RNA sequence: UGGGUCGGCCGGACGGUCGCGUCGCGCACGGUUCGCCGUCGCGCGCCGAGGAACGUCCGGGCUCCACAGGGCAGGGCGGUGGGUAACACCCACCCGGAGCGAUCCGCGAGACAGUGCCACAGAAAGCAGACCGCCGGGCGCCCUCGGGCGUCCCGGUAAGGGUGAAACGGUGGUGUAAGAGACCACCAGGGGUCGCGGUGACGCGGCCCGCUCGGUAAACCUCGCCCGGAGCAAGACCAGACAGGGGAUGUCGACGCGGCCCGCCGAGUCCCCGGGUAGGUCGCUAGAGCGUCACGGCAACGUGCCGCCGAGAGAGAUGGCCGUCAACGGGGCACACGCCCCCGAACAGAACCCGGCGUACAGGCCGGCCCAUUCG
Numbered sequence: 001u002g003g004g005u006c007g008g009c010c011g012g013a014c015g016g017u018c019g020c021g022u023c024g025c026g027c028a029c030g031g032u033u034c035g036c037c038g039u040c041g042c043g044c045g046c047c048g049a050g051g052a053a054c055g056u057c058c059g060g061g062c063u064c065c066a067c068a069g070g071g072c073a074g075g076g077c078g079g080u081g082g083g084u085a086a087c088a089c090c091c092a093c094c095c096g097g098a099g100c101g102a103u104c105c106g107c108g109a110g111a112c113a114g115u116g117c118c119a120c121a122g123a124a125a126g127c128a129g130a131c132c133g134c135c136g137g138g139c140g141c142c143c144u145c146g147g148g149c150g151u152c153c154c155g156g157u158a159a160g161g162g163u164g165a166a167a168c169g170g171u172g173g174u175g176u177a178a179g180a181g182a183c184c185a186c187c188a189g190g191g192g193u194c195g196c197g198g199u200g201a202c203g204c205g206g207c208c209c210g211c212u213c214g215g216u217a218a219a220c221c222u223c224g225c226c227c228g229g230a231g232c233a234a235g236a237c238c239a240g241a242c243a244g245g246g247g248a249u250g251u252c253g254a255c256g257c258g259g260c261c262c263g264c265c266g267a268g269u270c271c272c273c274g275g276g277u278a279g280g281u282c283g284c285u286a287g288a289g290c291g292u293c294a295c296g297g298c299a300a301c302g303u304g305c306c307g308c309c310g311a312g313a314g315a316g317a318u319g320g321c322c323g324u325c326a327a328c329g330g331g332g333c334a335c336a337c338g339c340c341c342c343c344g345a346a347c348a349g350a351a352c353c354c355g356g357c358g359u360a361c362a363g364g365c366c367g368g369c370c371c372a373u374u375c376g
Base pairs, nucleotide, nucleotide: 001372002371003370004369005368006367007366008365009364010363011361012325013324014323015322016321017320018319020048021047023045024044025043026042027041053359054358055357057356058355059354060353061352062231063230064229065228069261070260072258074227075226076225077224078223079093080092081091082090083089094108095106096105097104098103109222110221114220115219116216117215118214131161132160133157134156135155137152138151139150140149141148142147169187170186171185172184173183174182189211190209191208192207193206194205195204196203197202235282236281237280238279244273245272246271247270248269249268253265255263256262289308290307291306293304294303295302296301
Dot-bracket structure: ((((((((((((((((((.((.(((((.............))))).))....[[[.[[[[[((((...[[.[.((((((((((.....)))))(((((....)))).)((...(((((............(((((.((((((....))))))..)))..)).......((((((.......)))))).(((((((((....)))))))).)..)))..)))))))))))))...((((.....((((((...(.((.].]])).)..)))))).....))))......(((.((((....)))).)))..........)))))))..........................]]]]]]]].).))))))))))....